[Rfam]
RNA sequence: GCAGUAAGAUCGAAGACUAAAGACGCCACAUCCUGUGGCAACGUCUUCAUGACCCACAUCGUGUGGG
Numbered sequence: 001g002c003a004g005u006a007a008g009a010u011c012g013a014a015g016a017c018u019a020a021a022g023a024c025g026c027c028a029c030a031u032c033c034u035g036u037g038g039c040a041a042c043g044u045c046u047u048c049a050u051g052a053c054c055c056a057c058a059u060c061g062u063g064u065g066g067g
Stems, first nucleotide, its partner, number of pairs: 012048006025039005053067005